[Rfam]
RNA: mir-8799 microRNA precursor family
RNA sequence: AGAGGGAGUGCCGGAUUCUGGGCUGUGUCCCCAGCGCCCUGUGUUGCCGGGCCUGCGCUGUUGGAAUCGUGCUCCCGGCCGCGCAGCCCUCU
Numbered sequence: 001a002g003a004g005g006g007a008g009u010g011c012c013g014g015a016u017u018c019u020g021g022g023c024u025g026u027g028u029c030c031c032c033a034g035c036g037c038c039c040u041g042u043g044u045u046g047c048c049g050g051g052c053c054u055g056c057g058c059u060g061u062u063g064g065a066a067u068c069g070u071g072c073u074c075c076c077g078g079c080c081g082c083g084c085a086g087c088c089c090u091c092u
Base pairs, nucleotide, nucleotide: 001092002091003090004089005088006087010084011083012081013080014079017078018077020075021074022073024071025070026069027068028065029064031063032060033059034058035057036056037055041053043052044051045050